RNA: Small nucleolar RNA Z13/snr52
RNA sequence: CGUUACACUUUGAUGAAGCCAAUUACGGAUUAUGAGAGUCUUGCGACUCGUACGUCCGAGAGCGCAAAAAACGUGUGGAUUAUUCCGUUGCCUUCCUUCUGAUUUCUCCC
Numbered sequence: 001c002g003u004u005a006c007a008c009u010u011u012g013a014u015g016a017a018g019c020c021a022a023u024u025a026c027g028g029a030u031u032a033u034g035a036g037a038g039u040c041u042u043g044c045g046a047c048u049c050g051u052a053c054g055u056c057c058g059a060g061a062g063c064g065c066a067a068a069a070a071a072c073g074u075g076u077g078g079a080u081u082a083u084u085c086c087g088u089u090g091c092c093u094u095c096c097u098u099c100u101g102a103u104u105u106c107u108c109c110c
Stems, first nucleotide, its partner, number of pairs: 005107001026087004